[Rfam]
RNA: Polynucleobacter-1 RNA
RNA sequence: AGCUGGCACAGGCUGUAAUAUCGUGUGCCCUAGACCUGGUAGCAAUACACAGGGACGGAAGCCUUCUCGCUACAAGAAGCACUCAAUCACUACCCGCAAGGAUGCAGAUAGCAAACGCCGCUAUUUGAUUGUUU
Numbered sequence: 001a002g003c004u005g006g007c008a009c010a011g012g013c014u015g016u017a018a019u020a021u022c023g024u025g026u027g028c029c030c031u032a033g034a035c036c037u038g039g040u041a042g043c044a045a046u047a048c049a050c051a052g053g054g055a056c057g058g059a060a061g062c063c064u065u066c067u068c069g070c071u072a073c074a075a076g077a078a079g080c081a082c083u084c085a086a087u088c089a090c091u092a093c094c095c096g097c098a099a100g101g102a103u104g105c106a107g108a109u110a111g112c113a114a115a116c117g118c119c120g121c122u123a124u125u126u127g128a129u130u131g132u133u134u
Stems, first nucleotide, its partner, number of pairs: 006028005036052003039048003063079004084131005094101002107125006